A member of the RNA family "U11 spliceosomal RNA" from Myripristis murdjan, 135 nucleotides long. By type it is a spliceosomal small nuclear RNA. The family's consensus secondary structure is taken from published work. A reference for the family is Schneider et al. (2004), "Identification of an evolutionarily divergent U11 small nuclear ribonucleoprotein particle in Drosophila", Proc Natl Acad Sci U S A.

RNA sequence: AAAAAGGGCUUCUGUCGUGAGUGGCACAGGGGGAGUGGACUGAUCCACUUCUCCUGCGGAAUCGACAUCAAGAGAUUUCGGAAGCACAAUUUUUAAAUCUCGGGACUGCUAGUGAUCGCUCAUCCUGGCGUCCCA
Numbered sequence: 001a002a003a004a005a006g007g008g009c010u011u012c013u014g015u016c017g018u019g020a021g022u023g024g025c026a027c028a029g030g031g032g033g034a035g036u037g038g039a040c041u042g043a044u045c046c047a048c049u050u051c052u053c054c055u056g057c058g059g060a061a062u063c064g065a066c067a068u069c070a071a072g073a074g075a076u077u078u079c080g081g082a083a084g085c086a087c088a089a090u091u092u093u094u095a096a097a098u099c100u101c102g103g104g105a106c107u108g109c110u111a112g113u114g115a116u117c118g119c120u121c122a123u124c125c126u127g128g129c130g131u132c133c134c135a
Stems, first nucleotide, its partner, number of pairs: 008085005013026005027056012057080007103133004108129005114124003